[Rfam]
RNA sequence: UACCUGGUUGAUUCUGCCAGUAGUCAUAUGCUUGUCUCAAAGAUUAAGCCAUGCAUGUCUAAGUAUAAGCAAGUAUACUGCGAAACUGCGAAUGGCUCAUUAAAUCAGUUAUCGUUUAUUUGAUAGUACCUUACUACAUGGCUAACUGUGGUAAUUCUAGAGCUAAUACAUGCAAAAAACCCUGACUUACGAAAGGGUGUAUUUAUUAGAUAAAAAACCAAUGCCCUUUGGGCUUUUUGGUGAAUCAUAAUAACUAAACGAAUCGCAUGGCCUUGUGCCGGCGAUGGUUCAUUCAAAUUUCUGCCCUAUCAACUUUCGAUUGGUGAGUAGUGUUCACCAAUGGUGUCGACGGGUAACGAAGAAUUAGGGUUCGAUCUCGGAGAGGACGCCUGAGAAACGGCGUGCACAUCCAAGGAAGGCAGCAGGCGCGCAAAUUACCCAAUCCCAAUUCGGGGAGGUAGUGACAAUAAAUACUGAUGCAGGGCUCUUUUGGGUCUUGCAAUUGGAAUGAGUACAAUUUAAACCCCUUAACGAGGAACAAUUGGAGGGCAAGUCUGGUGCCAGCAGCCGCGGUAAUUCCAGCUCCAAUAGCGUAUAUUA
Numbered sequence: 001u002a003c004c005u006g007g008u009u010g011a012u013u014c015u016g017c018c019a020g021u022a023g024u025c026a027u028a029u030g031c032u033u034g035u036c037u038c039a040a041a042g043a044u045u046a047a048g049c050c051a052u053g054c055a056u057g058u059c060u061a062a063g064u065a066u067a068a069g070c071a072a073g074u075a076u077a078c079u080g081c082g083a084a085a086c087u088g089c090g091a092a093u094g095g096c097u098c099a100u101u102a103a104a105u106c107a108g109u110u111a112u113c114g115u116u117u118a119u120u121u122g123a124u125a126g127u128a129c130c131u132u133a134c135u136a137c138a139u140g141g142c143u144a145a146c147u148g149u150g151g152u153a154a155u156u157c158u159a160g161a162g163c164u165a166a167u168a169c170a171u172g173c174a175a176a177a178a179a180c181c182c183u184g185a186c187u188u189a190c191g192a193a194a195g196g197g198u199g200u201a202u203u204u205a206u207u208a209g210a211u212a213a214a215a216a217a218c219c220a221a222u223g224c225c226c227u228u229u230g231g232g233c234u235u236u237u238u239g240g241u242g243a244a245u246c247a248u249a250a251u252a253a254c255u256a257a258a259c260g261a262a263u264c265g266c267a268u269g270g271c272c273u274u275g276u277g278c279c280g281g282c283g284a285u286g287g288u289u290c291a292u293u294c295a296a297a298u299u300u301c302u303g304c305c306c307u308a309u310c311a312a313c314u315u316u317c318g319a320u321u322g323g324u325g326a327g328u329a330g331u332g333u334u335c336a337c338c339a340a341u342g343g344u345g346u347c348g349a350c351g352g353g354u355a356a357c358g359a360a361g362a363a364u365u366a367g368g369g370u371u372c373g374a375u376c377u378c379g380g381a382g383a384g385g386a387c388g389c390c391u392g393a394g395a396a397a398c399g400g401c402g403u404g405c406a407c408a409u410c411c412a413a414g415g416a417a418g419g420c421a422g423c424a425g426g427c428g429c430g431c432a433a434a435u436u437a438c439c440c441a442a443u444c445c446c447a448a449u450u451c452g453g454g455g456a457g458g459u460a461g462u463g464a465c466a467a468u469a470a471a472u473a474c475u476g477a478u479g480c481a482g483g484g485c486u487c488u489u490u491u492g493g494g495u496c497u498u499g500c501a502a503u504u505g506g507a508a509u510g511a512g513u514a515c516a517a518u519u520u521a522a523a524c525c526c527c528u529u530a531a532c533g534a535g536g537a538a539c540a541a542u543u544g545g546a547g548g549g550c551a552a553g554u555c556u557g558g559u560g561c562c563a564g565c566a567g568c569c570g571c572g573g574u575a576a577u578u579c580c581a582g583c584u585c586c587a588a589u590a591g592c593g594u595a596u597a598u599u600a
Stems, first nucleotide, its partner, number of pairs: 004020005022599003026596007035469001037467001041462001042429001048427003052424003057089002062087003069081002096382003106303003111298002115296002121291003137172004146162002149159003179198005186191001203253006217241004224232003263284004268280004305353003312344003319341008357379003361372004384405001386403004407418001409416002435460001437459003443455004475505003478501010512532002514529001516528001542588006555582004564571002
RNA: Eukaryotic small subunit ribosomal RNA, nucleotides 1 to 600
Organism: Microthyrium microscopicum